[Rfam]
RNA sequence: AAAUCAACUUCAUACGACCCUUAUAUAUCUAUGGAAAUAUGGUCCAUAAGUCUCUACCUGGCAGCCGUAAAGUGCCGGACUAUAAGGAAAGUAGAACGCAGG
Number, nucleotide and partner (000 for none) at each position: 001a000002a000003a000004u000005c000006a000007a000008c000009u000010u000011c000012a000013u000014a000015c000016g000017a000018c000019c087020c086021u085022u084023a083024u082025a081026u000027a000028u000029c000030u048031a047032u046033g045034g044035a043036a000037a000038u000039a000040u000041g000042g000043u035044c034045c033046a032047u031048a030049a000050g000051u000052c000053u000054c000055u000056a000057c000058c078059u077060g076061g075062c074063a073064g000065c000066c000067g000068u000069a000070a000071a000072g000073u063074g062075c061076c060077g059078g058079a000080c000081u025082a024083u023084a022085a021086g020087g019088a000089a000090a000091g000092u000093a000094g000095a000096a000097c000098g000099c000100a000101g000102g000